[Rfam]
RNA sequence: AAAACAAUUAUAGCGCCAGCGCUGAAGAAAUUGGACGACAUAGAUCUUCAGCAGACGAGGUGGAGGAGUAUCGAAAGUUUCGGCGGAUGCCUCCCGAUCGCCAUUGCCCGAUCGAAAUUUUGCUUAUAAAACGUUUGAGUAAUCGAACGGACAAAGAAGCAAAAUGGCAAAGAC
Numbered sequence: 001a002a003a004a005c006a007a008u009u010a011u012a013g014c015g016c017c018a019g020c021g022c023u024g025a026a027g028a029a030a031u032u033g034g035a036c037g038a039c040a041u042a043g044a045u046c047u048u049c050a051g052c053a054g055a056c057g058a059g060g061u062g063g064a065g066g067a068g069u070a071u072c073g074a075a076a077g078u079u080u081c082g083g084c085g086g087a088u089g090c091c092u093c094c095c096g097a098u099c100g101c102c103a104u105u106g107c108c109c110g111a112u113c114g115a116a117a118u119u120u121u122g123c124u125u126a127u128a129a130a131a132c133g134u135u136u137g138a139g140u141a142a143u144c145g146a147a148c149g150g151a152c153a154a155a156g157a158a159g160c161a162a163a164a165u166g167g168c169a170a171a172g173a174c
Stems, first nucleotide, its partner, number of pairs: 021052007062094005071083004095114006118164007132149007
RNA: glmS glucosamine-6-phosphate activated ribozyme aptamer